[Rfam]
RNA sequence: CCCAGGUAAGUGCCGGACCAGGCCGUCGAAGGACGGACGGGGCCGGCUCGGGGUGAAGUCGCUCGCGGAUGCGGGUGGCCGGGCAACUCACAGGCCCGAACCCGACAGCUCACCUCGUAGGCGUCGGUGAGGAGAACC
Number, nucleotide and partner (000 for none) at each position: 001c000002c000003c000004a000005g000006g000007u000008a000009a000010g000011u123012g122013c121014c120015g000016g000017a000018c036019c035020a000021g000022g000023c000024c000025g000026u000027c000028g000029a000030a000031g000032g000033a000034c000035g019036g018037a118038c117039g116040g115041g114042g113043c000044c050045g049046g000047c000048u000049c045050g044051g103052g102053g101054u000055g000056a000057a000058g000059u078060c077061g076062c075063u074064c073065g072066c000067g000068g000069a000070u000071g000072c065073g064074g063075g062076u061077g060078g059079c000080c000081g097082g096083g095084c094085a000086a000087c000088u000089c000090a000091c000092a000093g000094g084095c083096c082097c081098g000099a000100a000101c053102c052103c051104g000105a000106c000107a000108g000109c000110u000111c000112a000113c042114c041115u040116c039117g038118u037119a000120g014121g013122c012123g011124u000125c000126g000127g000128u000129g000130a000131g000132g000133a000134g000135a000136a000137c000138c000
The family of this 138-nucleotide RNA from Streptomyces sp. SirexAA-E is "c-di-AMP riboswitch aptamer (ydaO/yuaA leader)". A search with the family's covariance model found it, with a score of 59 bits.